[Rfam]
RNA sequence: GGCCGGAGAAGGCGUUCACGCCGCAUCCGGCAAUUUUGCGCCGAUUGUCUGAUGCUGCUCGCCGGAUGCGACGCUGGCGCGUCUUAUCCGGCC
Numbered sequence: 001g002g003c004c005g006g007a008g009a010a011g012g013c014g015u016u017c018a019c020g021c022c023g024c025a026u027c028c029g030g031c032a033a034u035u036u037u038g039c040g041c042c043g044a045u046u047g048u049c050u051g052a053u054g055c056u057g058c059u060c061g062c063c064g065g066a067u068g069c070g071a072c073g074c075u076g077g078c079g080c081g082u083c084u085u086a087u088c089c090g091g092c093c
Base pairs, nucleotide, nucleotide: 002031003030004029005028006027007026011022012021013020014019061092062091063090064089065088066087067086068085070083071082072081073080074079
The record is a 93-nucleotide sequence from Escherichia coli, which matches "Nucleoid-associated noncoding RNA 4 (CssrE)" in Rfam. In E. coli small RNA transcribed from repeated extragenic palindromic element (REP325) called nucleoid-associated ncRNA 4 (nRNA4) collaborates HU protein in condensing the DNA. The secondary structure but not the sequence of the RNA is important in nucleoid condensation. Also identified in Shigella as CssrE. Pairs were carried over by alignment from the consensus structure, which is taken from published work. The source organism's lineage runs through Bacteria, Gammaproteobacteria, Enterobacteriaceae, Escherichia and Escherichia coli. Rfam 15.1 lists 870 matches to the family in 32 species.